Background:
TPP riboswitch aptamer (THI element): a 96-nucleotide RNA sequence from Zhouia amylolytica. The family's consensus secondary structure is taken from published work. The source organism's lineage runs through Bacteria, Bacteroidota, Flavobacteriia, Flavobacteriales and Zhouia amylolytica.
RNA sequence: CUGAAACUUUAGGGGUGCUGACUUUGUCGGCUGAGAUGAUGACCCUUGGAACCUGAUCCGGUUAAUACUGGCGAAGGGAAAAGUUAGAACGCUUCA
Numbered sequence: 001c002u003g004a005a006a007c008u009u010u011a012g013g014g015g016u017g018c019u020g021a022c023u024u025u026g027u028c029g030g031c032u033g034a035g036a037u038g039a040u041g042a043c044c045c046u047u048g049g050a051a052c053c054u055g056a057u058c059c060g061g062u063u064a065a066u067a068c069u070g071g072c073g074a075a076g077g078g079a080a081a082a083g084u085u086a087g088a089a090c091g092c093u094u095c096a
Stems, first nucleotide, its partner, number of pairs: 006084005011046004017031005052077003058071004